The record is an 86-nucleotide RNA sequence from Anaerotalea alkaliphila, which matches "S10-Clostridia ribosomal protein leader" in Rfam.
A search with the family's covariance model found it, with a score of 61 bits.
By type it is a cis-regulatory leader.
RNA sequence: UGAUAGCGAUGAUGUGGAAGGUUGCCGCACAAGUAUUGUGGGGAAUUUCCACGGAGCGAAAGUCAUGUUCAUGAAACUGGCGACAA
Numbered sequence: 001u002g003a004u005a006g007c008g009a010u011g012a013u014g015u016g017g018a019a020g021g022u023u024g025c026c027g028c029a030c031a032a033g034u035a036u037u038g039u040g041g042g043g044a045a046u047u048u049c050c051a052c053g054g055a056g057c058g059a060a061a062g063u064c065a066u067g068u069u070c071a072u073g074a075a076a077c078u079g080g081c082g083a084c085a086a
Stems, first nucleotide, its partner, number of pairs: 014052003019048003025041005062084003067081001069080003